The record is a 73-nucleotide RNA sequence from Ursus americanus, which matches "mir-631 microRNA precursor family" in Rfam.
Gene Ontology terms of the family: miRNA-mediated post-transcriptional gene silencing and RISC complex.
The source organism's lineage runs through Eukaryota, Dipnotetrapodomorpha, Caniformia, Ursidae and Ursus.
The literature on the family includes a 2010 paper in BMC Res Notes by Brameier, "Genome-wide comparative analysis of microRNAs in three non-human primates".
The match comes from Rfam's covariance-model search (73 bits).
The family has 6 seed sequences and 98 matches in Rfam 15.1.

RNA sequence: GGGGAGCCUGGUCGACCUGGCCCAGACCUCGGCUACAUAGCUGAUGGACUGAGUCAGGGGGCUGAGGCUCUCC
Numbered sequence: 001g002g003g004g005a006g007c008c009u010g011g012u013c014g015a016c017c018u019g020g021c022c023c024a025g026a027c028c029u030c031g032g033c034u035a036c037a038u039a040g041c042u043g044a045u046g047g048a049c050u051g052a053g054u055c056a057g058g059g060g061g062c063u064g065a066g067g068c069u070c071u072c073c
Stems, first nucleotide, its partner, number of pairs: 001073006009065001010062001012060002016058006023051003027047002029044006